Shown here is a 102-nucleotide sequence from Bacilli bacterium VT-13-104, a member of the family "Purine riboswitch aptamer". The source organism's lineage runs through Bacteria, Bacillati, Bacillota and Bacilli.

RNA sequence: AAGAAAUUGUAUUUGGCCUUUCGUAUAUCCUCGAUAAUAUGGUUCGAAAGUUUCUACCGGAGUACCGUAAAUACUCUGACUAUGAAGGCAGAAAAUCUAAAU
Number, nucleotide and partner (000 for none) at each position: 001a000002a000003g000004a000005a000006a000007u000008u000009g000010u000011a000012u000013u000014u000015g000016g000017c000018c088019u087020u086021u085022c084023g083024u082025a081026u000027a000028u000029c000030c000031u047032c046033g045034a044035u000036a000037a000038u000039a000040u000041g000042g000043u000044u034045c033046g032047a031048a000049a000050g000051u000052u000053u000054c000055u000056a000057c000058c078059g077060g076061a075062g074063u073064a072065c000066c000067g000068u000069a000070a000071a000072u064073a063074c062075u061076c060077u059078g058079a000080c000081u025082a024083u023084g022085a021086a020087g019088g018089c000090a000091g000092a000093a000094a000095a000096u000097c000098u000099a000100a000101a000102u000
The family's consensus secondary structure is taken from published work.